[Rfam]
RNA: Small nucleolar RNA SNORD24
Organism: Adiantum capillus-veneris
RNA sequence: GGCCUCUGAUGCAUAAAUCUGAUGAUAUUUGAUGGCCUCGUUGGCCGCUUGAUGAUGGUUUUAUCCACCAAGAUCUCUGAGGCC
Number, nucleotide and partner (000 for none) at each position: 001g084002g083003c082004c081005u080006c079007u000008g000009a000010u000011g000012c000013a000014u000015a000016a000017a000018u000019c000020u000021g000022a000023u000024g000025a000026u000027a000028u000029u000030u000031g000032a000033u000034g000035g000036c000037c000038u000039c000040g000041u000042u000043g000044g000045c000046c000047g000048c000049u000050u000051g000052a000053u000054g000055a000056u000057g000058g000059u000060u000061u000062u000063a000064u000065c000066c000067a000068c000069c000070a000071a000072g000073a000074u000075c000076u000077c000078u000079g006080a005081g004082g003083c002084c001